Description: Rfam assigns this 265-nucleotide part of an RNA from Reinekea forsetii to the family "Bacterial large subunit ribosomal RNA". The source organism's lineage runs through Bacteria, Pseudomonadati, Pseudomonadota, Saccharospirillaceae and Reinekea.
RNA sequence: GGAAAAUUGAGAAGAGCUGCUCCUAGUACGAGAGGACCGGAGUGGACGAACCUCUGGUGUUCGGGUUGUCAUGCCAAUGGCAUUGCCCGGUAGCUAAGUUCGGACGGGAUAACCGCUGAAAGCAUCUAAGCGGGAAGCCCCCUUCAAGAUAAGUUUUCCCCGAGGCUUUAAGCCUCCUGAAGGGCCCAGUAAGACUAACUGGUUGAUAGGCAGGGUGUGUAAGCGUUGUGAGGCGUUGAGCUAACCUGUACUAAUUGCCCGUGCG
Numbered sequence: 001g002g003a004a005a006a007u008u009g010a011g012a013a014g015a016g017c018u019g020c021u022c023c024u025a026g027u028a029c030g031a032g033a034g035g036a037c038c039g040g041a042g043u044g045g046a047c048g049a050a051c052c053u054c055u056g057g058u059g060u061u062c063g064g065g066u067u068g069u070c071a072u073g074c075c076a077a078u079g080g081c082a083u084u085g086c087c088c089g090g091u092a093g094c095u096a097a098g099u100u101c102g103g104a105c106g107g108g109a110u111a112a113c114c115g116c117u118g119a120a121a122g123c124a125u126c127u128a129a130g131c132g133g134g135a136a137g138c139c140c141c142c143u144u145c146a147a148g149a150u151a152a153g154u155u156u157u158c159c160c161c162g163a164g165g166c167u168u169u170a171a172g173c174c175u176c177c178u179g180a181a182g183g184g185c186c187c188a189g190u191a192a193g194a195c196u197a198a199c200u201g202g203u204u205g206a207u208a209g210g211c212a213g214g215g216u217g218u219g220u221a222a223g224c225g226u227u228g229u230g231a232g233g234c235g236u237u238g239a240g241c242u243a244a245c246c247u248g249u250a251c252u253a254a255u256u257g258c259c260c261g262u263g264c265g
Base pairs, nucleotide, nucleotide: 001159002158003157004156005155006154007153008152011145012144013143014142017045018044019043020042021041022040023039047102048101049100050099051098055096056095057094062089063088064087065086066085067082068081069080070079071078072077106140107139108138113133114132115131116130117129162176163175164174165173166172179262182260183259184258185257186202187201188200189199190198207253208252209251210249211248212247213246214245217241223236224235225234226233227232